[Rfam]
RNA sequence: UCCAGUGAUGGCACAUCUUUGAGACCUGAGUUUUCUCUGUUGAUGAAAAACAUAAGCAUAUUACCUGAGGGA
Numbered sequence: 001u002c003c004a005g006u007g008a009u010g011g012c013a014c015a016u017c018u019u020u021g022a023g024a025c026c027u028g029a030g031u032u033u034u035c036u037c038u039g040u041u042g043a044u045g046a047a048a049a050a051c052a053u054a055a056g057c058a059u060a061u062u063a064c065c066u067g068a069g070g071g072a
Base pairs, nucleotide, nucleotide: 001071002070003069029041030040031039